[Rfam]
RNA sequence: UAAAUGGUCCUUUUCAGGACCACCAAAUACUUACAAAAGAGAAUUUU
Numbered sequence: 001u002a003a004a005u006g007g008u009c010c011u012u013u014u015c016a017g018g019a020c021c022a023c024c025a026a027a028u029a030c031u032u033a034c035a036a037a038a039g040a041g042a043a044u045u046u047u
Stems, first nucleotide, its partner, number of pairs: 006021006
Dot-bracket structure: .....((((((....))))))..........................
RNA: Histone 3' UTR stem-loop